[Rfam]
RNA sequence: UGAUUUGCUCGUAGAGCUACGAGCAGGGUAAAAUAAAAAAGGCUUACUGAGA
Numbered sequence: 001u002g003a004u005u006u007g008c009u010c011g012u013a014g015a016g017c018u019a020c021g022a023g024c025a026g027g028g029u030a031a032a033a034u035a036a037a038a039a040a041g042g043c044u045u046a047c048u049g050a051g052a
Stems, first nucleotide, its partner, number of pairs: 006025006014045004
A member of the RNA family "6A RNA" from Anaerobacterium chartisolvens, 52 nucleotides long. It is annotated as a small RNA.